[Rfam]
RNA: FMN riboswitch aptamer (RFN element)
RNA sequence: AGGCGUCUUCAGGGCGGGGUGCGAUUCCCCACCGGCGGUAGGUGCCAGCAACGGCACGAGCCCGCGAGCGCUCCGGCGGCGACAGCGGCUGGAGGUCAGCAGAUCCGGUCCGAUGCCGGAGCCGACGGUCACAGUCCGGAUGAAAGAAGACGGGU
Numbered sequence: 001a002g003g004c005g006u007c008u009u010c011a012g013g014g015c016g017g018g019g020u021g022c023g024a025u026u027c028c029c030c031a032c033c034g035g036c037g038g039u040a041g042g043u044g045c046c047a048g049c050a051a052c053g054g055c056a057c058g059a060g061c062c063c064g065c066g067a068g069c070g071c072u073c074c075g076g077c078g079g080c081g082a083c084a085g086c087g088g089c090u091g092g093a094g095g096u097c098a099g100c101a102g103a104u105c106c107g108g109u110c111c112g113a114u115g116c117c118g119g120a121g122c123c124g125a126c127g128g129u130c131a132c133a134g135u136c137c138g139g140a141u142g143a144a145a146g147a148a149g150a151c152g153g154g155u
Base pairs, nucleotide, nucleotide: 004152005151006150007149008148009147010146017029018028019027031135032134033124034123035065036064037063038062060122061121068100069099104120105119106118107117108116126138127137128136